[Rfam]
RNA: Ribosomal protein L13 leader
Organism: Alkalibacterium sp. AK22
RNA sequence: GGUAUUGUUUGCCACCAUGAUAAGCCCCGGAAACUUGUUUUGGAACAAACAACAA
Numbered sequence: 001g002g003u004a005u006u007g008u009u010u011g012c013c014a015c016c017a018u019g020a021u022a023a024g025c026c027c028c029g030g031a032a033a034c035u036u037g038u039u040u041u042g043g044a045a046c047a048a049a050c051a052a053c054a055a
Stems, first nucleotide, its partner, number of pairs: 006051006016042002019039006